[Rfam]
RNA sequence: UUAUGCCCAUGGUAUCUAAUGUCAAGAACUAUUUAUUUCUUGAUGUUUCGUUUUUGAGGGCAUAAACCAAUUUGAACAGACCUUGCGACACAGAUUGCUUCUCUACAAUAAGCUUUCUGUUACUAUUUUCCUGUCUACAUAU
Number, nucleotide and partner (000 for none) at each position: 001u000002u000003a000004u062005g061006c060007c059008c058009a000010u000011g000012g000013u000014a000015u000016c000017u000018a047019a046020u045021g044022u043023c042024a041025a040026g039027a038028a037029c000030u000031a000032u000033u000034u000035a000036u000037u028038u027039c026040u025041u024042g023043a022044u021045g020046u019047u018048u000049c000050g000051u000052u000053u000054u000055u000056g000057a000058g008059g007060g006061c005062a004063u000064a000065a000066a000067c000068c000069a000070a000071u000072u000073u000074g000075a000076a134077c133078a132079g131080a000081c000082c000083u000084u000085g000086c000087g000088a000089c000090a120091c119092a118093g117094a116095u000096u000097g113098c112099u111100u000101c000102u000103c000104u000105a000106c000107a000108a000109u000110a000111a099112g098113c097114u000115u000116u094117c093118u092119g091120u090121u000122a000123c000124u000125a000126u000127u000128u000129u000130c000131c079132u078133g077134u076135c000136u000137a000138c000139a000140u000141a000142u000
RNA: Small nucleolar RNA F1/F2/snoR5a